[Rfam]
RNA: Glycine riboswitch aptamer
RNA sequence: UUUUCGCACUCUGGAGAGCGGCAGUAGCCAUCUGCAAACGCAGGUUCAGGCAGGCUGCCCACCGAAGGGGCGCGCGUUUCGCCGUGACGAAUCCAGGUUCUCGCGGCAGCGCAAUCUCUCAGGUAUCGAGGACAGAGGGGUCAUG
Numbered sequence: 001u002u003u004u005c006g007c008a009c010u011c012u013g014g015a016g017a018g019c020g021g022c023a024g025u026a027g028c029c030a031u032c033u034g035c036a037a038a039c040g041c042a043g044g045u046u047c048a049g050g051c052a053g054g055c056u057g058c059c060c061a062c063c064g065a066a067g068g069g070g071c072g073c074g075c076g077u078u079u080c081g082c083c084g085u086g087a088c089g090a091a092u093c094c095a096g097g098u099u100c101u102c103g104c105g106g107c108a109g110c111g112c113a114a115u116c117u118c119u120c121a122g123g124u125a126u127c128g129a130g131g132a133c134a135g136a137g138g139g140g141u142c143a144u145g
Stems, first nucleotide, its partner, number of pairs: 007139001009137005020059006061124003064120002068118003074112005